[Rfam]
RNA: Eukaryotic large subunit ribosomal RNA, nucleotides 885 to 1197
RNA sequence: GAGUCUAACAUGUGUGCGAGUCACUGGGUCUCGCAGAAGCCCACGGGCGCAAACAAAUUAAACUUCUACUCUUCGUAGUGAGUCGGGAUCCCCCGCAUAGUUGCGAGGGGCGCACCGACGGCCUGCCACACUCCUAGGAGUCGAGGCGGAGCCUGAGCACACACGUUGGGACCCGAAAGAUGGUGAACUAUGCCUAGACAGGACGAAGACAGGGGAAACCCUGUUGGAAGUCCGAAGCGGUUCUGACGUGCAAAUCGAUCGUCUGAUCCGCGUAUAGGGGCGAAAGACUAAUCGAACCAUCUAGUAGCUGGUU
Numbered sequence: 001g002a003g004u005c006u007a008a009c010a011u012g013u014g015u016g017c018g019a020g021u022c023a024c025u026g027g028g029u030c031u032c033g034c035a036g037a038a039g040c041c042c043a044c045g046g047g048c049g050c051a052a053a054c055a056a057a058u059u060a061a062a063c064u065u066c067u068a069c070u071c072u073u074c075g076u077a078g079u080g081a082g083u084c085g086g087g088a089u090c091c092c093c094c095g096c097a098u099a100g101u102u103g104c105g106a107g108g109g110g111c112g113c114a115c116c117g118a119c120g121g122c123c124u125g126c127c128a129c130a131c132u133c134c135u136a137g138g139a140g141u142c143g144a145g146g147c148g149g150a151g152c153c154u155g156a157g158c159a160c161a162c163a164c165g166u167u168g169g170g171a172c173c174c175g176a177a178a179g180a181u182g183g184u185g186a187a188c189u190a191u192g193c194c195u196a197g198a199c200a201g202g203a204c205g206a207a208g209a210c211a212g213g214g215g216a217a218a219c220c221c222u223g224u225u226g227g228a229a230g231u232c233c234g235a236a237g238c239g240g241u242u243c244u245g246a247c248g249u250g251c252a253a254a255u256c257g258a259u260c261g262u263c264u265g266a267u268c269c270g271c272g273u274a275u276a277g278g279g280g281c282g283a284a285a286g287a288c289u290a291a292u293c294g295a296a297c298c299a300u301c302u303a304g305u306a307g308c309u310g311g312u313u
Stems, first nucleotide, its partner, number of pairs: 005169005011163007020048003025043005052059002082119005090110004121152002123149003126145001132139002172311002175308001179301006188277006195270001197268002199265001201233004208225007237262004242258002245256002279289002